The family of this 88-nucleotide RNA sequence from Handroanthus impetiginosus is "Small nucleolar RNA R44/J54/Z268 family". The source organism's lineage runs through Eukaryota, Streptophyta, Embryophyta, Bignoniaceae and Handroanthus. It scores 86 bits against the family's covariance model. Its Rfam clan is "SNORD74 clan". Gene Ontology terms of the family: nucleolus and RNA processing. The family has 29 seed sequences and 1,168 matches in Rfam 15.1.
[Rfam]
RNA sequence: CUGGCAAAUGAUGAUAAAACAGACAGGGACAUCAGAACUCCUUUUGGGGAAAGAUGACUUAGUCUAAUGGGAAUCUCUCUGAUGCUAU
Numbered sequence: 001c002u003g004g005c006a007a008a009u010g011a012u013g014a015u016a017a018a019a020c021a022g023a024c025a026g027g028g029a030c031a032u033c034a035g036a037a038c039u040c041c042u043u044u045u046g047g048g049g050a051a052a053g054a055u056g057a058c059u060u061a062g063u064c065u066a067a068u069g070g071g072a073a074u075c076u077c078u079c080u081g082a083u084g085c086u087a088u
Stems, first nucleotide, its partner, number of pairs: 002087005